This 272-nucleotide RNA from Eleutherodactylus coqui belongs to the Rfam family "Small Cajal body specific RNA 6".
On this family, see Darzacq et al., EMBO J 2002: "Cajal body-specific small nuclear RNAs: a novel class of 2'-O-methylation and pseudouridylation guide RNAs".
It is annotated as a small Cajal body RNA.
Its family is annotated with nucleolus and RNA processing in the Gene Ontology.
Rfam 15.1 lists 1,309 matches to the family in 627 species.
The match comes from Rfam's covariance-model search (90 bits).
U88 is small Cajal body specific RNA (scaRNA). scaRNAs are a novel class of small nuclear RNAs which localise to the Cajal bodies.
[Rfam]
RNA sequence: GGUCAGUGAUGAAUAGUAAAAGGUCUGAAGCGCCGGUAUUCUGCUACAACCCACUAUUCUCCCAGCAACCCCAGUUGUAUCCAGUCACACUGAAGAUAUGUGUGGUUGGUUUAAAAGGCGGCCGCUGAUAUAAUUGGCUUGUCUCUGCCGUUUAUCUGCACAAGGUGAAAGGAUAAGCGUUUUCUGAAGCAAUCCUACAUAGUAAGUGAUAAGGAGACCGGGUGGAGGCUGAGUGCUGUGUGCUGCAUGAUCAGACGUUUUAAGCUGAGACC
Numbered sequence: 001g002g003u004c005a006g007u008g009a010u011g012a013a014u015a016g017u018a019a020a021a022g023g024u025c026u027g028a029a030g031c032g033c034c035g036g037u038a039u040u041c042u043g044c045u046a047c048a049a050c051c052c053a054c055u056a057u058u059c060u061c062c063c064a065g066c067a068a069c070c071c072c073a074g075u076u077g078u079a080u081c082c083a084g085u086c087a088c089a090c091u092g093a094a095g096a097u098a099u100g101u102g103u104g105g106u107u108g109g110u111u112u113a114a115a116a117g118g119c120g121g122c123c124g125c126u127g128a129u130a131u132a133a134u135u136g137g138c139u140u141g142u143c144u145c146u147g148c149c150g151u152u153u154a155u156c157u158g159c160a161c162a163a164g165g166u167g168a169a170a171g172g173a174u175a176a177g178c179g180u181u182u183u184c185u186g187a188a189g190c191a192a193u194c195c196u197a198c199a200u201a202g203u204a205a206g207u208g209a210u211a212a213g214g215a216g217a218c219c220g221g222g223u224g225g226a227g228g229c230u231g232a233g234u235g236c237u238g239u240g241u242g243c244u245g246c247a248u249g250a251u252c253a254g255a256c257g258u259u260u261u262a263a264g265c266u267g268a269g270a271c272c
Base pairs, nucleotide, nucleotide: 001272002271003270004269033254035252036251037250041233042232043229044228045227047225059216060215061214062213063127064126065125066124069121081109082108083107084106085105086104087103088102089101090100137194139192140191141190142189149179150178151177152176153175154174155173156172157171159167